[Rfam]
A member of the RNA family "sodF sRNA", 92 nucleotides long. Rfam links the family to the GO terms mRNA binding, negative regulation of translation and regulation of mRNA stability. The pairing is the family consensus, mapped onto this sequence. It scores 91 bits against the family's covariance model. It is annotated as a small RNA.
RNA sequence: GCGUCCCGCCUCGUGAUCGUCUUCUCAACCUUCGCGACGGCGGGCGGAUAGAGGAAGGACCCCCGCGAGGACAUGACUCGCGGGGGUCUUUC
Numbered sequence: 001g002c003g004u005c006c007c008g009c010c011u012c013g014u015g016a017u018c019g020u021c022u023u024c025u026c027a028a029c030c031u032u033c034g035c036g037a038c039g040g041c042g043g044g045c046g047g048a049u050a051g052a053g054g055a056a057g058g059a060c061c062c063c064c065g066c067g068a069g070g071a072c073a074u075g076a077c078u079c080g081c082g083g084g085g086g087u088c089u090u091u092c
Stems, first nucleotide, its partner, number of pairs: 002046002005044006013035004019029002054092016